[Rfam]
This 142-nucleotide sequence from Salix koriyanagi belongs to the Rfam family "Small nucleolar RNA snoR138".
The organism belongs to Salix, within Eukaryota.
It is annotated as an H/ACA-box small nucleolar RNA.
Its family is annotated with nucleolus and RNA processing in the Gene Ontology.
RNA sequence: AAUGCCUCCGAAUGACCGGAAGGUCUCGAAAUAAAAUAACACCGUCUGGUCCAGACAGAGGCAUACAACAAUCUGAAUCUCUUUUGAGAGGGUACGGAACUUCUAUUUCUGUGCUCCUUUUAUUGUUUGGAUUCGAAUAUUU
Number, nucleotide and partner (000 for none) at each position: 001a000002a000003u063004g062005c061006c060007u059008c058009c000010g000011a000012a000013u000014g051015a050016c049017c048018g047019g046020a045021a000022g000023g042024u041025c000026u000027c000028g040029a000030a000031a000032u000033a000034a000035a000036a000037u000038a000039a000040c028041a024042c023043c000044g000045u020046c019047u018048g017049g016050u015051c014052c000053a000054g000055a000056c000057a000058g008059a007060g006061g005062c004063a003064u000065a000066c000067a000068a000069c000070a000071a000072u000073c000074u135075g134076a133077a132078u131079c130080u000081c000082u000083u122084u000085u000086g119087a118088g117089a000090g116091g000092g000093u000094a112095c111096g110097g109098a108099a107100c000101u000102u000103c000104u000105a000106u000107u099108u098109c097110u096111g095112u094113g000114c000115u000116c090117c088118u087119u086120u000121u000122a083123u000124u000125g000126u000127u000128u000129g000130g079131a078132u077133u076134c075135g074136a000137a000138u000139a000140u000141u000142u000